[Rfam]
RNA sequence: GAGCUGUGAUGACUCUUGUGUCUGUUGUGAUGGCUGGGUCUAUCACUUAGCCCCUUUGGGUGAAAAUUGGCACAUCUGAGCUC
Numbered sequence: 001g002a003g004c005u006g007u008g009a010u011g012a013c014u015c016u017u018g019u020g021u022c023u024g025u026u027g028u029g030a031u032g033g034c035u036g037g038g039u040c041u042a043u044c045a046c047u048u049a050g051c052c053c054c055u056u057u058g059g060g061u062g063a064a065a066a067u068u069g070g071c072a073c074a075u076c077u078g079a080g081c082u083c
Base pairs, nucleotide, nucleotide: 001083002082003081004080
Dot-bracket structure: ((((...........................................................................))))